[Rfam]
RNA sequence: GGUUUUUACCCUAGUUAACCAAGGUUAGCAUGGAUUUCGACCUAUCGAAAGAUUGUGUUGAAUUGAGUAAUUUUUGGAAAAGCUUCUUCGGGGUAUCCGGAGAGGCGAU
Numbered sequence: 001g002g003u004u005u006u007u008a009c010c011c012u013a014g015u016u017a018a019c020c021a022a023g024g025u026u027a028g029c030a031u032g033g034a035u036u037u038c039g040a041c042c043u044a045u046c047g048a049a050a051g052a053u054u055g056u057g058u059u060g061a062a063u064u065g066a067g068u069a070a071u072u073u074u075u076g077g078a079a080a081a082g083c084u085u086c087u088u089c090g091g092g093g094u095a096u097c098c099g100g101a102g103a104g105g106c107g108a109u
Stems, first nucleotide, its partner, number of pairs: 008035001009033002014029002017026003038060004042055001044053003084107001086105004092098002

The record is a 109-nucleotide RNA sequence from Caenorhabditis brenneri, which matches "SL2 RNA" in Rfam. Rfam describes the family as follows. This family represents SL2 RNA. SL2 RNA is involved in trans splicing in lower eukaryotes. Trans-splicing is a form of RNA processing. The acquisition of a spliced leader from a SL RNA is a intra-molecular reaction which precisely joins exons derived from separately transcribed RNAs. Approximately 25% of C. elegans genes are organised into polycistronic transcription units and the presence of SL2 on an mRNA is an indication the the gene is in an operon. Rfam links the family to the GO term mRNA trans splicing, via spliceosome. A reference for the family is Evans and Blumenthal (2000), "trans splicing of polycistronic Caenorhabditis elegans pre-mRNAs: analysis of the SL2 RNA", Mol Cell Biol.